[Rfam]
RNA: THF (Tetrahydrofolate) riboswitch aptamer
RNA sequence: GGUUGAGUAGAAACAGUGCGUUAAGUAUCGAAGAAUGGGAGGUUGUCUUCGAGCGAAAAGUUAUCAUAACUUGCGGUGCUGUUUCGCAUCUGCUACC
Numbered sequence: 001g002g003u004u005g006a007g008u009a010g011a012a013a014c015a016g017u018g019c020g021u022u023a024a025g026u027a028u029c030g031a032a033g034a035a036u037g038g039g040a041g042g043u044u045g046u047c048u049u050c051g052a053g054c055g056a057a058a059a060g061u062u063a064u065c066a067u068a069a070c071u072u073g074c075g076g077u078g079c080u081g082u083u084u085c086g087c088a089u090c091u092g093c094u095a096c097c
Base pairs, nucleotide, nucleotide: 001097002096003095005093010085011084012083013082014081015080016079017078018077019075020074021073025054026053028052029051030050031049032048033047034046038091039090040089042087058072059071060070061069